RNA: SAH (S-adenosyl-L-homocysteine) riboswitch aptamer
RNA sequence: UCUCUCAAGGAGCGUUGCAGCGGUCAGCCCAGGCCCCCCGGGCCGGGACCGUCAGGCUUGAGUGGGCUGGACCGGCCCCAACGACGCUCACCAGCU
Numbered sequence: 001u002c003u004c005u006c007a008a009g010g011a012g013c014g015u016u017g018c019a020g021c022g023g024u025c026a027g028c029c030c031a032g033g034c035c036c037c038c039c040g041g042g043c044c045g046g047g048a049c050c051g052u053c054a055g056g057c058u059u060g061a062g063u064g065g066g067c068u069g070g071a072c073c074g075g076c077c078c079c080a081a082c083g084a085c086g087c088u089c090a091c092c093a094g095c096u
Base pairs, nucleotide, nucleotide: 002064004062005061006060007059008058021051022050023049024048025047